RNA sequence: CUAGAUAUGGAGACAUGGUUCCUAAGACCAUUAUGGGGAAGAUCUUUGGCUCCAUCUGUUCUCUAAGUGGCGUUUUGGUGAUUGCUCUUCCUGUUCCAGUCAUCGUCUCCAAC
Numbered sequence: 001c002u003a004g005a006u007a008u009g010g011a012g013a014c015a016u017g018g019u020u021c022c023u024a025a026g027a028c029c030a031u032u033a034u035g036g037g038g039a040a041g042a043u044c045u046u047u048g049g050c051u052c053c054a055u056c057u058g059u060u061c062u063c064u065a066a067g068u069g070g071c072g073u074u075u076u077g078g079u080g081a082u083u084g085c086u087c088u089u090c091c092u093g094u095u096c097c098a099g100u101c102a103u104c105g106u107c108u109c110c111a112a113c
Stems, first nucleotide, its partner, number of pairs: 002112001004109001007106004012101003017096002020093001036076004048062002
Rfam assigns this 113-nucleotide RNA sequence from Danionella cerebrum to the family "Potassium channel RNA editing signal". This family represents a group of sequences related to the human potassium channel Kv1.1 hairpin element which directs the efficient modification of an adenosine to inosine by an adenosine deaminase acting on RNA (ADAR). The ADAR modification causes an isoleucine/valine recoding event which lies in the ion-conducting pore of the potassium channel. It is thought that this editing event targets the process of fast inactivation and allows a more rapid recovery from inactivation at negative potentials. The literature on the family includes a 2004 paper in Nat Struct Mol Biol by Bhalla et al., "Control of human potassium channel inactivation by editing of a small mRNA hairpin". Its family is annotated with adenosine to inosine editing in the Gene Ontology.